Burkholderia RNA 7 (anti-hemB): an 86-nucleotide RNA from Rhodoferax sediminis. Gene Ontology terms of the family: bacterial biofilm matrix and protein binding.

[Rfam]
RNA sequence: UCCCCGCUUUUCCUCCCUGAGCGGGCGCCUCAAUGUGUGACAGCAAAAAGGCUUCCCAACCCGGCCUUGGUGCCGGGUUUUUUUUG
Numbered sequence: 001u002c003c004c005c006g007c008u009u010u011u012c013c014u015c016c017c018u019g020a021g022c023g024g025g026c027g028c029c030u031c032a033a034u035g036u037g038u039g040a041c042a043g044c045a046a047a048a049a050g051g052c053u054u055c056c057c058a059a060c061c062c063g064g065c066c067u068u069g070g071u072g073c074c075g076g077g078u079u080u081u082u083u084u085u086g
Stems, first nucleotide, its partner, number of pairs: 003025006027052004034045003058079008
Notes:
The base pairs follow the family's consensus structure, which is taken from published work. Rfam's curators write: This RNA motif was identified by computational search in b-proteobacteria Burkholderia. Co-purified with Hfq, expression confirmed by Northern blot.